Nucleotides: 127
Stems, first nucleotide, its partner, number of pairs: 003125005009119002016028003030107002032096002034048004043094002052071002076092005098110003
Number, partner (000 for none) and nucleotide at each position: 001000g002000u003125c004124g005123u006122g007121c008000a009119c010118c011000g012000g013000g014000g015000u016028c017027a018026g019000u020000g021000a022000a023000a024000g025000u026018c027017u028016g029000a030107a031106c032096c033095g034048g035047c036046g037045g038000u039000g040000a041000u042000a043094g044093u045037c046036c047035g048034c049000g050000a051000c052071c053070c054000g055000c056000g057000u058000c059000c060000c061000c062000a063000u064000g065000g066000a067000c068000g069000u070053g071052g072000u073000u074000g075000a076092u077091u078090c079089g080088g081000u082000g083000a084000a085000a086000u087000u088080c089079c090078g091077g092076a093044a094043c095033c096032g097000a098110c099109g100108g101000u102000g103000a104000a105000a106031g107030u108100c109099c110098g111000g112000a113000u114000g115000g116000u117000a118010g119009g120000a121007g122006c123005a124004c125003g126000a127000u
Overview:
The record is a 127-nucleotide RNA sequence from Corynebacterium mendelii, which matches "FMN riboswitch aptamer (RFN element)" in Rfam. It scores 97 bits against the family's covariance model.